[Rfam]
RNA sequence: GACACGAAAAGGUAAACCCGGUGAAAACUGGGGACGCAAAGCUAUGGGUCUAAAACUCCAGAGGAGUUAUGACUGCCAGGCCGCCGAA
Numbered sequence: 001g002a003c004a005c006g007a008a009a010a011g012g013u014a015a016a017c018c019c020g021g022u023g024a025a026a027a028c029u030g031g032g033g034a035c036g037c038a039a040a041g042c043u044a045u046g047g048g049u050c051u052a053a054a055a056c057u058c059c060a061g062a063g064g065a066g067u068u069a070u071g072a073c074u075g076c077c078a079g080g081c082c083g084c085c086g087a088a
Stems, first nucleotide, its partner, number of pairs: 012037002017032006041081003045078003048073003055067004
The record is an 88-nucleotide sequence from Pelolinea submarina, which matches "c-di-GMP-I riboswitch aptamer" in Rfam. The match comes from Rfam's covariance-model search (77 bits). The family's consensus secondary structure is taken from published work.